The family of this 123-nucleotide RNA sequence from Prolemur simus is "Small nucleolar RNA SNORA51".
Rfam links the family to the GO terms nucleolus and RNA processing.
The family's RNA type in Rfam is H/ACA-box small nucleolar RNA.
Rfam describes the family as follows. ACA51 is a member of the H/ACA class of snoRNA that guide the sites of modification of uridines to pseudouridines.
The family's consensus secondary structure was predicted with PFOLD.
The match comes from Rfam's covariance-model search (98 bits).
Nucleotides: 123
Base pairs, nucleotide, nucleotide: 002056003055004054005053006052007051008050020043021042022041028035029034069115070114071113073111083101084100085099087097088096090094
Number, partner (000 for none) and nucleotide at each position: 001000g002056g003055u004054c005053u006052c007051c008050u009000g010000g011000u012000g013000c014000u015000u016000a017000c018000c019000a020043c021042a022041g023000g024000c025000u026000a027000c028035g029034u030000u031000c032000u033000u034029a035028c036000a037000c038000u039000g040000a041022c042021u043020g044000u045000a046000u047000a048000g049000g050008a051007g052006g053005a054004g055003g056002c057000a058000g059000a060000g061000u062000a063000a064000a065000c066000c067000u068000c069115c070114c071113c072000a073111a074000c075000u076000u077000g078000c079000a080000c081000c082000c083101c084100g085099g086000c087097c088096c089000u090094g091000u092000g093000c094090c095000u096088g097087g098000u099085c100084u101083g102000u103000a104000u105000u106000g107000u108000g109000a110000a111073u112000g113071g114070g115069g116000g117000g118000a119000c120000g121000u122000g123000g